[Rfam]
RNA sequence: CAUGAAGAGGUUCAUAGCUGAAACCCUCUAUAAAAAACUAUGGAUAG
Numbered sequence: 001c002a003u004g005a006a007g008a009g010g011u012u013c014a015u016a017g018c019u020g021a022a023a024c025c026c027u028c029u030a031u032a033a034a035a036a037a038c039u040a041u042g043g044a045u046a047g
Base pairs, nucleotide, nucleotide: 006029007028008027009026010025015040016039
RNA: PreQ1 (pre queuosine) riboswitch aptamer